[Rfam]
RNA sequence: AGAGCUUGCUCCCAAAGCUUGGGUGUCUAGCUGAUAAUUAGACUAUCAAGGGUUAAAUUCCCUUCAAGCUCUA
Numbered sequence: 001a002g003a004g005c006u007u008g009c010u011c012c013c014a015a016a017g018c019u020u021g022g023g024u025g026u027c028u029a030g031c032u033g034a035u036a037a038u039u040a041g042a043c044u045a046u047c048a049a050g051g052g053u054u055a056a057a058u059u060c061c062c063u064u065c066a067a068g069c070u071c072u073a
Stems, first nucleotide, its partner, number of pairs: 001072007011023003026042005048064005
RNA: tRNA